[Rfam]
Shown here is a 360-nucleotide RNA from Methylocystis bryophila, a member of the family "Alphaproteobacteria transfer-messenger RNA". Gene Ontology term of the family: RNA catabolic process. Taxonomically the source falls in Methylocystis (Bacteria, Pseudomonadati, Pseudomonadota, Alphaproteobacteria). The family's RNA type in Rfam is non-coding RNA gene. Bacterial tmRNA, also known as 10Sa RNA or SsrA, is named for its dual tRNA and mRNA-like properties.

RNA sequence: GACCUUUUACAUUUCCGCGCAACAGCCUAUAUAGGCUUCUGUCGUCGCUUGCGGCGUCUAUGGCGAUAAACGAGCUUCGCAAUAAACCUAUCGGACCCGGGGGCGGUACCCGGCGCCUCCACCCGAGGCCAGCGCAAAGGCUGGGCUGGGGUGGGGGCGAAAUAGGAUUGACGAGGGCGUAAAGGGGGUUUUUUCGCUCGGCAUGAUACCGCCGUUAUCGGGUCAAACCUAUAGUUGCCAACGACAACUAUGCUCCGGUGGCCGUCGCCGCGUAAUGCGGCGCCUACACUGGGAAUCAAGUCCUGAAGGUUAGCGCCUUCAGGCGGGGCUCGGAGGCGCCUGGCAACAGAAGCCUCCACU
Numbered sequence: 001g002a003c004c005u006u007u008u009a010c011a012u013u014u015c016c017g018c019g020c021a022a023c024a025g026c027c028u029a030u031a032u033a034g035g036c037u038u039c040u041g042u043c044g045u046c047g048c049u050u051g052c053g054g055c056g057u058c059u060a061u062g063g064c065g066a067u068a069a070a071c072g073a074g075c076u077u078c079g080c081a082a083u084a085a086a087c088c089u090a091u092c093g094g095a096c097c098c099g100g101g102g103g104c105g106g107u108a109c110c111c112g113g114c115g116c117c118u119c120c121a122c123c124c125g126a127g128g129c130c131a132g133c134g135c136a137a138a139g140g141c142u143g144g145g146c147u148g149g150g151g152u153g154g155g156g157g158c159g160a161a162a163u164a165g166g167a168u169u170g171a172c173g174a175g176g177g178c179g180u181a182a183a184g185g186g187g188g189u190u191u192u193u194u195c196g197c198u199c200g201g202c203a204u205g206a207u208a209c210c211g212c213c214g215u216u217a218u219c220g221g222g223u224c225a226a227a228c229c230u231a232u233a234g235u236u237g238c239c240a241a242c243g244a245c246a247a248c249u250a251u252g253c254u255c256c257g258g259u260g261g262c263c264g265u266c267g268c269c270g271c272g273u274a275a276u277g278c279g280g281c282g283c284c285u286a287c288a289c290u291g292g293g294a295a296u297c298a299a300g301u302c303c304u305g306a307a308g309g310u311u312a313g314c315g316c317c318u319u320c321a322g323g324c325g326g327g328g329c330u331c332g333g334a335g336g337c338g339c340c341u342g343g344c345a346a347c348a349g350a351a352g353c354c355u356c357c358a359c360u
Base pairs, nucleotide, nucleotide: 041058043056044055045054046053047052062198063197064196065195066194072191073190074189075188076187077186078185087177088176089175091174092173093172097113098112099111100110101109114159115158116157117156118155119154120153199214200213201212202211204225205224206223209221210220326341327340328339329338332357333356334355335354336353337352